Rfam assigns this 86-nucleotide RNA from Carlito syrichta to the family "mir-3154 microRNA precursor family". The family's consensus secondary structure was predicted with RNAalifold. The source organism's lineage runs through Eukaryota, Teleostomi, Dipnotetrapodomorpha, Tarsiidae and Carlito. The match comes from Rfam's covariance-model search (75 bits). Its family is annotated with RISC complex and miRNA-mediated post-transcriptional gene silencing in the Gene Ontology.
Nucleotides: 086
Base pairs, nucleotide, nucleotide: 003084005081006080007079008078009077012076013075023073024072025071026070027069030065031064032063034062036060037057038056039055040054041053043051
Number, partner (000 for none) and nucleotide at each position: 001000a002000g003084g004000c005081c006080c007079c008078u009077c010000c011000u012076u013075u014000c015000c016000a017000g018000c019000c020000c021000c022000a023073g024072c025071u026070c027069c028000c029000a030065c031064u032063c033000a034062c035000c036060c037057c038056u039055g040054c041053c042000a043051c044000a045000u046000c047000a048000a049000a050000g051043g052000a053041g054040g055039c056038a057037g058000u059000a060036g061000u062034g063032g064031a065030g066000u067000c068000a069027g070026g071025a072024g073023c074000a075013g076012a077009g078008a079007g080006g081005g082000a083000a084003u085000a086000a